[Rfam]
RNA sequence: GCCAGUGAUAUUGUCCUGUCACAGCAGUAUGUUUUAUUUAAAUAUUUUACUGCUGGGCCGGGGCAUUAACAUUGUU
Numbered sequence: 001g002c003c004a005g006u007g008a009u010a011u012u013g014u015c016c017u018g019u020c021a022c023a024g025c026a027g028u029a030u031g032u033u034u035u036a037u038u039u040a041a042a043u044a045u046u047u048u049a050c051u052g053c054u055g056g057g058c059c060g061g062g063g064c065a066u067u068a069a070c071a072u073u074g075u076u
Stems, first nucleotide, its partner, number of pairs: 003074004012065007022055008
RNA: mir-1000 microRNA precursor family